[Rfam]
RNA sequence: GUGCCAUGAUGUUGACCGUCAACACAUCAUUCUGAAGAAGGAUUGUGUGGAGACUUUGUGGAACUGAGCACC
Numbered sequence: 001g002u003g004c005c006a007u008g009a010u011g012u013u014g015a016c017c018g019u020c021a022a023c024a025c026a027u028c029a030u031u032c033u034g035a036a037g038a039a040g041g042a043u044u045g046u047g048u049g050g051a052g053a054c055u056u057u058g059u060g061g062a063a064c065u066g067a068g069c070a071c072c
Base pairs, nucleotide, nucleotide: 001071002070003069004068
RNA: Small nucleolar RNA SNORD63
Organism: Formicarius rufipectus